[Rfam]
Nucleotides: 125
Stems, first nucleotide, its partner, number of pairs: 002040004007036002009033007017025001063119003068114003075107005081101003086093002
Number, partner (000 for none) and nucleotide at each position: 001000a002040g003039g004038c005037a006000g007036c008035c009033u010032c011031u012030u013029u014028g015027c016000a017025a018000a019000u020000g021000a022000c023000u024000a025017u026000a027015g028014u029013a030012a031011a032010g033009a034000a035008g036007g037005u038004g039003u040002u041000a042000a043000a044000c045000u046000g047000c048000u049000c050000a051000u052000a053000a054000a055000u056000a057000a058000a059000u060000u061000g062000u063119c064118u065117u066000u067000u068114g069113c070112u071000c072000u073000u074000c075107a076106g077105a078104c079103u080000u081101g082100c083099u084000g085000a086093g087092a088000u089000u090000a091000g092087u093086c094000u095000u096000u097000g098000a099083a100082g101081c102000u103079g104078g105077u106076c107075u108000a109000g110000u111000a112070a113069g114068c115000c116000a117065a118064a119063g120000c121000a122000c123000a124000u125000u
Shown here is a 125-nucleotide sequence from Cephalotus follicularis, a member of the family "Small nucleolar RNA snoR77". It is annotated as an H/ACA-box small nucleolar RNA. The source organism's lineage runs through Eukaryota, Tracheophyta, Euphyllophyta, Mesangiospermae and Cephalotus. Pairs were carried over by alignment from the consensus structure, which was predicted with WAR. A search with the family's covariance model found it, with a score of 124 bits.